[Rfam]
Nucleotides: 078
Stems, first nucleotide, its partner, number of pairs: 007070002010067002013064008022056009032045003
Number, partner (000 for none) and nucleotide at each position: 001000g002000c003000c004000c005000u006000g007070g008069g009000c010067g011066g012000g013064a014063u015062a016061u017060c018059a019058u020057c021000g022056u023055a024054u025053a026052c027051u028050g029049u030048a031000a032045g033044u034043u035000g036000g037000c038000u039000u040000g041000g042000a043034g044033a045032c046000a047000c048030u049029a050028c051027a052026g053025u054024a055023u056022a057020g058019a059018u060017g061016a062015u063014g064013u065000a066011c067010u068000c069008c070007c071000c072000a073000g074000g075000g076000c077000c078000g

A member of the RNA family "mir-144 microRNA precursor family" from Todus mexicanus, 78 nucleotides long. The organism belongs to Todus, within Eukaryota. For this family Rfam cites "Identification of microRNAs from different tissues of chicken embryo and adult chicken" (Xu et al., FEBS Lett, 2006). Rfam links the family to the GO terms RISC complex and miRNA-mediated post-transcriptional gene silencing.